Shown here is a 53-nucleotide RNA sequence, a member of the family "Mu-gpT-DE RNA". Rfam's curators put it in the seed alignment. The base pairs follow the family's consensus structure, which is taken from published work.
RNA sequence: CCCUGACAGCCGCAUCCUGUGGCUGACACUAGCCAAGACAGGAGAUCAUAAUG
Numbered sequence: 001c002c003c004u005g006a007c008a009g010c011c012g013c014a015u016c017c018u019g020u021g022g023c024u025g026a027c028a029c030u031a032g033c034c035a036a037g038a039c040a041g042g043a044g045a046u047c048a049u050a051a052u053g
Stems, first nucleotide, its partner, number of pairs: 002042004007025005